A member of the RNA family "MIR408 microRNA precursor family" from Papaver somniferum, 123 nucleotides long. NCBI's taxonomy places the organism under Eukaryota, Streptophytina, Tracheophyta, Papaveroideae, Papaver.
RNA sequence: AAAAGGUAACUGGAUGGAGACAGGGAUGAGGUUGAGCAUGAGAUGGACCACUCAGCACAUAAACUUUGCUGGUUGCUCCUCCCAUGCACUGCCUCUUCCCUGGCUCCUCUCUCUCUAAUUUGA
Numbered sequence: 001a002a003a004a005g006g007u008a009a010c011u012g013g014a015u016g017g018a019g020a021c022a023g024g025g026a027u028g029a030g031g032u033u034g035a036g037c038a039u040g041a042g043a044u045g046g047a048c049c050a051c052u053c054a055g056c057a058c059a060u061a062a063a064c065u066u067u068g069c070u071g072g073u074u075g076c077u078c079c080u081c082c083c084a085u086g087c088a089c090u091g092c093c094u095c096u097u098c099c100c101u102g103g104c105u106c107c108u109c110u111c112u113c114u115c116u117a118a119u120u121u122g123a
Stems, first nucleotide, its partner, number of pairs: 017106003021102006029094004034089001036087005042082001046078002
Notes:
The base pairs follow the family's consensus structure, which was predicted with WAR. For this family Rfam cites "High throughput approaches reveal splicing of primary microRNA transcripts and tissue specific expression of mature microRNAs in Vitis vinifera" (Mica et al., BMC Genomics, 2009).